[Rfam]
The family of this 72-nucleotide RNA sequence from Vittaforma corneae is "tRNA". The family's consensus secondary structure is taken from published work. Rfam's curators write: Transfer RNA (tRNA) molecules are approximately 80 nucleotides in length. The source organism's lineage runs through Eukaryota, Opisthokonta, Microsporidia, Apansporoblastina and Vittaforma corneae.

RNA sequence: GGUUCUAUAGUGUAAUGGCUAGCACAUCGGUCUCUGAAUCCGGUAAUCUGAGUUCGAAUCUCGGUAGAACCA
Dot-bracket structure: (((((((..((((........)))).((((.........))))....(((((.......)))))))))))).

The match comes from Rfam's covariance-model search (63 bits). By type it is a transfer RNA.